[Rfam]
RNA: U1 spliceosomal RNA
Organism: Dicentrarchus labrax
RNA sequence: ACACAAAACUAGCAAAGGUGAAAACAUGACACUGGUUCACUCAGGGUGAGGAUCAAAUAUUGCAUUCCGGCUGUGCUGACCUCUGCAAAUUCCCCAAAUAUGGGGAUCUUGACUGCAUAAUUUCUGGUUGUGGGGGAUUGUGUUCGCAUUCUCCAC
Numbered sequence: 001a002c003a004c005a006a007a008a009c010u011a012g013c014a015a016a017g018g019u020g021a022a023a024a025c026a027u028g029a030c031a032c033u034g035g036u037u038c039a040c041u042c043a044g045g046g047u048g049a050g051g052a053u054c055a056a057a058u059a060u061u062g063c064a065u066u067c068c069g070g071c072u073g074u075g076c077u078g079a080c081c082u083c084u085g086c087a088a089a090u091u092c093c094c095c096a097a098a099u100a101u102g103g104g105g106a107u108c109u110u111g112a113c114u115g116c117a118u119a120a121u122u123u124c125u126g127g128u129u130g131u132g133g134g135g136g137a138u139u140g141u142g143u144u145c146g147c148a149u150u151c152u153c154c155a156c
Stems, first nucleotide, its partner, number of pairs: 012116003017041005023036001025034002043084004048080001050077002054073002058069001086111003089107003093103002133156001135154003140149003